[Rfam]
RNA sequence: UAAGCAGACCGCCUUAUCGCUCUAUUUAUAGAGAGGAAAGUCCGGACACCACAGAGAAGCAUAGCGGCUAACAGCCGCCAAUAUCAUUUUUGGUAUUAGGACAAGUGCAGCAGAAAGAAUGUACAGGUAAUGCUGUAGUGAAACCAGGUAAACUCUAUGCGGUGCAAUGUCAUGUAAACCAAUGUUUGAGGGUGCUCGCCCGAUGUUGGAGGGUAGGCAGCUAGAGGUUUUUGGCAACAAAAACCCCAGAUAAAUGAUAAGGGCCUUUUAGGUACAGAAUCCGGCUUAUAGGUCUGCUUUUUUU
Numbered sequence: 001u002a003a004g005c006a007g008a009c010c011g012c013c014u015u016a017u018c019g020c021u022c023u024a025u026u027u028a029u030a031g032a033g034a035g036g037a038a039a040g041u042c043c044g045g046a047c048a049c050c051a052c053a054g055a056g057a058a059g060c061a062u063a064g065c066g067g068c069u070a071a072c073a074g075c076c077g078c079c080a081a082u083a084u085c086a087u088u089u090u091u092g093g094u095a096u097u098a099g100g101a102c103a104a105g106u107g108c109a110g111c112a113g114a115a116a117g118a119a120u121g122u123a124c125a126g127g128u129a130a131u132g133c134u135g136u137a138g139u140g141a142a143a144c145c146a147g148g149u150a151a152a153c154u155c156u157a158u159g160c161g162g163u164g165c166a167a168u169g170u171c172a173u174g175u176a177a178a179c180c181a182a183u184g185u186u187u188g189a190g191g192g193u194g195c196u197c198g199c200c201c202g203a204u205g206u207u208g209g210a211g212g213g214u215a216g217g218c219a220g221c222u223a224g225a226g227g228u229u230u231u232u233g234g235c236a237a238c239a240a241a242a243a244c245c246c247c248a249g250a251u252a253a254a255u256g257a258u259a260a261g262g263g264c265c266u267u268u269u270a271g272g273u274a275c276a277g278a279a280u281c282c283g284g285c286u287u288a289u290a291g292g293u294c295u296g297c298u299u300u301u302u303u304u
Base pairs, nucleotide, nucleotide: 002299003298004297005296006295007294008293009292010291011289012262013261014260015259016258017257018256020033021032022031023030024029038287039286040285042284043283044282045281046280047164048163049162050161054197055196056195059160060159061158062157063156064078065077066076067075068074079099080097081096082095083094084093085092086091100155101154105153106152107149108148122137123136124135125134126133168219169218170217171216179209180208181207182206183205190201191200192199193198226245227244228243229242230241231240232239233238
RNA: Bacterial RNase P class A